[Rfam]
RNA sequence: CUCAUGUUCCGGGGGUCGGUGAGAAUCCGAACCGGCGGUGACAGUCCGCGAACCUCGCACCCGCGAGGCCGACUCGGCGAAAUUCCGAGACCGACGGUGAUGCGCCUCAGGCGCGAGUCCGGAUAAAAGGAACACGAU
Numbered sequence: 001c002u003c004a005u006g007u008u009c010c011g012g013g014g015g016u017c018g019g020u021g022a023g024a025a026u027c028c029g030a031a032c033c034g035g036c037g038g039u040g041a042c043a044g045u046c047c048g049c050g051a052a053c054c055u056c057g058c059a060c061c062c063g064c065g066a067g068g069c070c071g072a073c074u075c076g077g078c079g080a081a082a083u084u085c086c087g088a089g090a091c092c093g094a095c096g097g098u099g100a101u102g103c104g105c106c107u108c109a110g111g112c113g114c115g116a117g118u119c120c121g122g123a124u125a126a127a128a129g130g131a132a133c134a135c136g137a138u
Stems, first nucleotide, its partner, number of pairs: 003136001005134006017029003033093002035049004044091002053068002073089005095121003
Rfam assigns this 138-nucleotide RNA to the family "FMN riboswitch aptamer (RFN element)". The family's consensus secondary structure is taken from published work. From the family's description: The RFN element is a highly conserved domain that is found frequently in the 5'-untranslated regions of prokaryotic mRNAs that encode for flavin mononucleotide (FMN) biosynthesis and transport proteins. Gene Ontology term of the family: FMN binding. The match comes from Rfam's covariance-model search (81 bits).